[Rfam]
RNA: Eukaryotic large subunit ribosomal RNA, nucleotides 2993 to 3385
Organism: Sorghum bicolor
RNA sequence: GACCGUGCCGCGAUAGUAAUUCAACCUAGUACGAGAGGAACCGUUGAUUCACACAAUUGGUCAUCGCGCUUGGUUGAAAAGCCAGUGGCGCGAAGCUACCGUGUGCCGGAUUAUGACUGAACGCCUCUAAGUCAGAAUCCAAGCUAGCAACCGGCGCCUGUGCCCGCCGCUCGCCCCGACCCACAUUAGGGCGUUCGCGCCCCAAGGGCCCGUGCCAUUGGCUCAGCCUGCUCGGCCGACGCGCCGUAGCCGGCCGCCUCGAAGCUCCCUUCCUAACGGGCGGCGGGCUGAAUCCUUUGCAGACGACUUAAAACGCGACGGGGCAUUGUAAGUGGCAGAGUGGCCUUGCUGCCACGAUCCACUGAGAUCCAGCCCCACGUCGCACGGAUUCGU
Numbered sequence: 001g002a003c004c005g006u007g008c009c010g011c012g013a014u015a016g017u018a019a020u021u022c023a024a025c026c027u028a029g030u031a032c033g034a035g036a037g038g039a040a041c042c043g044u045u046g047a048u049u050c051a052c053a054c055a056a057u058u059g060g061u062c063a064u065c066g067c068g069c070u071u072g073g074u075u076g077a078a079a080a081g082c083c084a085g086u087g088g089c090g091c092g093a094a095g096c097u098a099c100c101g102u103g104u105g106c107c108g109g110a111u112u113a114u115g116a117c118u119g120a121a122c123g124c125c126u127c128u129a130a131g132u133c134a135g136a137a138u139c140c141a142a143g144c145u146a147g148c149a150a151c152c153g154g155c156g157c158c159u160g161u162g163c164c165c166g167c168c169g170c171u172c173g174c175c176c177c178g179a180c181c182c183a184c185a186u187u188a189g190g191g192c193g194u195u196c197g198c199g200c201c202c203c204a205a206g207g208g209c210c211c212g213u214g215c216c217a218u219u220g221g222c223u224c225a226g227c228c229u230g231c232u233c234g235g236c237c238g239a240c241g242c243g244c245c246g247u248a249g250c251c252g253g254c255c256g257c258c259u260c261g262a263a264g265c266u267c268c269c270u271u272c273c274u275a276a277c278g279g280g281c282g283g284c285g286g287g288c289u290g291a292a293u294c295c296u297u298u299g300c301a302g303a304c305g306a307c308u309u310a311a312a313a314c315g316c317g318a319c320g321g322g323g324c325a326u327u328g329u330a331a332g333u334g335g336c337a338g339a340g341u342g343g344c345c346u347u348g349c350u351g352c353c354a355c356g357a358u359c360c361a362c363u364g365a366g367a368u369c370c371a372g373c374c375c376c377a378c379g380u381c382g383c384a385c386g387g388a389u390u391c392g393u
Stems, first nucleotide, its partner, number of pairs: 005157006014146004019049001021047005050105005058098003065092005070085006108140002114134005164286007290391005296310001299307001315383006321375003325368002332362004337358001340355005